RNA: Mammalian CPEB3 ribozyme
Organism: Alligator mississippiensis
RNA sequence: GGUUGCAAGUUCGAUGCCAUAGCAGACGUGCUCAUGGCACAGCCCCAUCAGAUUCAAAACAAAUCUGUGAAUUCUGCU
Numbered sequence: 001g002g003u004u005g006c007a008a009g010u011u012c013g014a015u016g017c018c019a020u021a022g023c024a025g026a027c028g029u030g031c032u033c034a035u036g037g038c039a040c041a042g043c044c045c046c047a048u049c050a051g052a053u054u055c056a057a058a059a060c061a062a063a064u065c066u067g068u069g070a071a072u073u074c075u076g077c078u
Stems, first nucleotide, its partner, number of pairs: 013045001016043002021078006028040003049067006